Overview:
The record is a 141-nucleotide sequence from Paenibacillus cremeus, which matches "c-di-AMP riboswitch aptamer (ydaO/yuaA leader)" in Rfam. The base pairs follow the family's consensus structure. About the family: This family represents a conserved RNA structure found upstream of the ydaO and yuaA genes in Bacillus subtilis and related genes in other bacteria.
[Rfam]
RNA sequence: UCGAAUGAAAGGCCGAAGCUUCAAUGCGAAGCGCGGGGGAACCUAUCUUUGGGGUGAAGCUGUUGUGCAUGCAGCAGCCGGGUGAUUGCUCUUUGACCCGAAUCCGUCAGCUAACCUCGUAGGCCGUCAAAAAGGAGAGGA
Numbered sequence: 001u002c003g004a005a006u007g008a009a010a011g012g013c014c015g016a017a018g019c020u021u022c023a024a025u026g027c028g029a030a031g032c033g034c035g036g037g038g039g040a041a042c043c044u045a046u047c048u049u050u051g052g053g054g055u056g057a058a059g060c061u062g063u064u065g066u067g068c069a070u071g072c073a074g075c076a077g078c079c080g081g082g083u084g085a086u087u088g089c090u091c092u093u094u095g096a097c098c099c100g101a102a103u104c105c106g107u108c109a110g111c112u113a114a115c116c117u118c119g120u121a122g123g124c125c126g127u128c129a130a131a132a133a134g135g136a137g138a139g140g141a
Base pairs, nucleotide, nucleotide: 011125012124013123014122018032019031020030033120034119035118036117037116038115043051052105053104054103060077061076062075063074080099081098082097083096